[Rfam]
The family of this 74-nucleotide RNA from Pseudogemmobacter humi is "Singlet oxygen resistance RNA X".
NCBI's taxonomy places the organism under Bacteria, Alphaproteobacteria, Rhodobacterales, Paracoccaceae, Pseudogemmobacter.
Rfam's curators write: SorX (RSs2461)like SorY is a singlet oxygen induced sRNA that counteracts oxidative stress by targeting mRNA for a transporter in Rhodobacter. It also has an impact on resistance against organic hydroperoxides. It targets SD sequence of potA mRNA via an aSD sequence.
The match comes from Rfam's covariance-model search (70 bits).
The family's RNA type in Rfam is small RNA.
RNA sequence: CCCCUUGCCGUGUCGGGGUUAUGACACGGUUCCUCCCUGUUGGACUGGCCGGGCCCUCGGGUCCGGCCUUUUUU
Number, nucleotide and partner (000 for none) at each position: 001c000002c000003c000004c000005u000006u000007g000008c029009c028010g027011u026012g025013u024014c023015g000016g000017g000018g000019u000020u000021a000022u000023g014024a013025c012026a011027c010028g009029g008030u000031u000032c000033c000034u000035c000036c000037c000038u000039g000040u000041u000042g000043g000044a000045c000046u000047g068048g067049c066050c065051g064052g063053g062054c061055c000056c000057u000058c000059g000060g000061g054062u053063c052064c051065g050066g049067c048068c047069u000070u000071u000072u000073u000074u000
Overview
The base pairs follow the family's consensus structure.